[Rfam]
RNA: Ribosomal protein L10 leader
RNA sequence: GGUUAAUAAAUAACUGUACCGAAGACAGUAGGUGGCGCAAGUCUUAAUUUCCUACCGAGGACAACGAUUGAUUAAAUUUUGUCAAUGAGUCCCUCUAUGUCAACGGUGGCAUGGAGUUUUUUGUUGUUUAU
Numbered sequence: 001g002g003u004u005a006a007u008a009a010a011u012a013a014c015u016g017u018a019c020c021g022a023a024g025a026c027a028g029u030a031g032g033u034g035g036c037g038c039a040a041g042u043c044u045u046a047a048u049u050u051c052c053u054a055c056c057g058a059g060g061a062c063a064a065c066g067a068u069u070g071a072u073u074a075a076a077u078u079u080u081g082u083c084a085a086u087g088a089g090u091c092c093c094u095c096u097a098u099g100u101c102a103a104c105g106g107u108g109g110c111a112u113g114g115a116g117u118u119u120u121u122u123g124u125u126g127u128u129u130a131u
Base pairs, nucleotide, nucleotide: 028055029054030053031052032051034043035042036041093116094115095114096113097112098111099110100109101108102107